[Rfam]
Nucleotides: 317
Base pairs, nucleotide, nucleotide: 002317003316004315005314007311008310009309010308011307014263015262016261017260018259019258026075027074028073029072030071031070032069042059043058044057045056046055047054048053081300082299083298085297086296087295088294101113102112103111104110115132116131117130118129119128120127121126134233137230138229139228140227149225150224151223152222209217210216265284266283267282268281269280270279
Number, partner (000 for none) and nucleotide at each position: 001000u002317c003316c004315a005314u006000g007311a008310c009309c010308a011307a012000a013000g014263a015262a016261u017260c018259g019258u020000c021000a022000a023000u024000u025000u026075u027074c028073g029072a030071a031070g032069c033000c034000u035000g036000c037000a038000a039000a040000a041000g042059g043058g044057a045056u046055g047054g048053g049000u050000a051000c052000c053048c054047c055046c056045a057044u058043u059042c060000a061000a062000a063000u064000a065000a066000u067000a068000u069032g070031c071030u072029u073028u074027g075026g076000g077000a078000u079000g080000a081300a082299a083298g084000u085297c086296u087295c088294c089000g090000a091000c092000c093000u094000g095000a096000c097000a098000a099000c100000u101113u102112g103111c104110g105000g106000a107000a108000a109000a110104c111103g112102c113101a114000a115132u116131g117130a118129g119128a120127u121126u122000u123000a124000a125000a126121a127120a128119u129118u130117u131116c132115a133000a134233a135000a136000u137230g138229u139228u140227u141000a142000a143000a144000u145000c146000a147000a148000c149225u150224c151223a152222u153000u154000a155000a156000g157000u158000a159000g160000a161000u162000g163000g164000u165000u166000a167000u168000u169000c170000g171000a172000u173000u174000a175000u176000c177000u178000g179000c180000u181000u182000u183000g184000c185000c186000a187000c188000c189000u190000a191000g192000a193000u194000c195000g196000u197000c198000a199000c200000a201000g202000a203000u204000g205000g206000u207000c208000u209217a210216g211000u212000g213000c214000u215000u216210u217209u218000c219000g220000g221000u222152a223151u224150g225149g226000g227140a228139a229138a230137c231000c232000a233134u234000u235000g236000u237000g238000g239000u240000u241000u242000c243000c244000a245000a246000a247000c248000c249000a250000u251000a252000g253000u254000u255000a256000u257000g258019a259018c260017g261016a262015u263014u264000g265284c266283u267282c268281a269280a270279g271000g272000a273000u274000u275000a276000u277000c278000c279270u280269u281268u282267g283266a284265g285000u286000a287000a288000c289000c290000c291000a292000a293000u294088g295087g296086a297085g298083c299082u300081u301000a302000c303000u304000u305000u306000c307011u308010u309009g310008g311007u312000c313000c314005a315004u316003g317002g
This 317-nucleotide RNA from Zygosaccharomyces rouxii belongs to the Rfam family "RNase MRP". The literature on the family includes a 1993 paper in FASEB J by Schmitt et al., "Secondary structure of RNase MRP RNA as predicted by phylogenetic comparison". The family has 66 seed sequences and 3,510 matches in Rfam 15.1. The match comes from Rfam's covariance-model search (94 bits). NCBI's taxonomy places the organism under Eukaryota, Ascomycota, Saccharomycotina, Saccharomycetaceae, Zygosaccharomyces. RNase MRP is an enzymatically active ribonucleoprotein with two distinct roles in eukaryotes.